[Rfam]
RNA sequence: UUCUUAUCCAGAGAGGUGGAGGGACUGGCCCUAUGAAACCUCGGCAGCGGACAUGUGUACCGUGCCAAUUCCAGCAAGCCAAUAAAAGCUUGGGAGAUAAGAA
Number, nucleotide and partner (000 for none) at each position: 001u103002u102003c101004u100005u099006a098007u097008c096009c000010a000011g000012a000013g042014a041015g040016g039017u038018g000019g000020a000021g031022g030023g029024a000025c074026u073027g072028g071029c023030c022031c021032u000033a000034u000035g000036a000037a000038a017039c016040c015041u014042c013043g066044g065045c064046a063047g000048c062049g061050g000051a058052c057053a000054u000055g000056u000057g052058u051059a000060c000061c049062g048063u046064g045065c044066c043067a000068a000069u000070u095071c028072c027073a026074g025075c092076a091077a090078g089079c088080c000081a000082a000083u000084a000085a000086a000087a000088g079089c078090u077091u076092g075093g000094g000095a070096g008097a007098u006099a005100a004101g003102a002103a001